[Rfam]
RNA sequence: GCGUUUCAUUCCGAGCGAUCCGGCGGCGUCGGGUCCGGCAACCUGGGACGGACUCCCAAGGUGCCAUCCCACCACACGGUGGGGAUGUGGUCCGCAGGGACAACCAAGGGUCCGAUA
Number, nucleotide and partner (000 for none) at each position: 001g000002c000003g000004u000005u000006u000007c087008a086009u085010u084011c000012c000013g000014a000015g036016c000017g035018a034019u033020c032021c031022g030023g029024c028025g000026g000027c000028g024029u023030c022031g021032g020033g019034u018035c017036c015037g065038g064039c063040a000041a000042c061043c060044u059045g057046g056047g055048a000049c000050g112051g111052a000053c109054u000055c047056c046057c045058a000059a044060g043061g042062u000063g039064c038065c037066a000067u000068c000069c000070c000071a000072c000073c000074a000075c000076a000077c000078g000079g000080u000081g000082g000083g000084g010085a009086u008087g007088u000089g000090g101091u100092c099093c098094g000095c000096a000097g000098g093099g092100a091101c090102a000103a000104c000105c000106a000107a000108g000109g053110g000111u051112c050113c000114g000115a000116u000117a000
RNA: SAM-I/IV (S-adenosyl methionine) riboswitch aptamer